[Rfam]
The family of this 78-nucleotide RNA from Schistosoma japonicum is "mir-3492 microRNA precursor family". The match comes from Rfam's covariance-model search (48 bits). The base pairs follow the family's consensus structure, which was predicted with RNAalifold.
Nucleotides: 078
Base pairs, nucleotide, nucleotide: 003076004075005074006073008071011068012067013066016064020061021060022059024058025057026056028054029053
Number, partner (000 for none) and nucleotide at each position: 001000a002000c003076c004075u005074u006073u007000u008071u009000g010000a011068a012067u013066u014000c015000g016064u017000a018000c019000u020061g021060a022059g023000a024058u025057u026056u027000c028054g029053u030000c031000a032000a033000a034000g035000a036000c037000c038000a039000a040000c041000c042000c043000a044000u045000u046000a047000g048000g049000g050000c051000u052000a053029a054028u055000a056026a057025a058024a059022c060021u061020c062000u063000c064016a065000a066013g067012a068011u069000a070000a071008g072000u073006g074005a075004a076003g077000u078000g